[Rfam]
RNA: Streptomyces-metK RNA
RNA sequence: GCGAGACACCUGGUCCACAACACGACCACGACCGAUAGACUGUUCGUGGAACGUCGCGGGGCGCAGCCCCCUGCCGGUCCGCGUCACGAGUAGCCAGCAGCCGCUGCAACCCCAGGGAG
Numbered sequence: 001g002c003g004a005g006a007c008a009c010c011u012g013g014u015c016c017a018c019a020a021c022a023c024g025a026c027c028a029c030g031a032c033c034g035a036u037a038g039a040c041u042g043u044u045c046g047u048g049g050a051a052c053g054u055c056g057c058g059g060g061g062c063g064c065a066g067c068c069c070c071c072u073g074c075c076g077g078u079c080c081g082c083g084u085c086a087c088g089a090g091u092a093g094c095c096a097g098c099a100g101c102c103g104c105u106g107c108a109a110c111c112c113c114a115g116g117g118a119g
Base pairs, nucleotide, nucleotide: 048080049079050078052076053075056074058072059071060070061069095106096105097104098103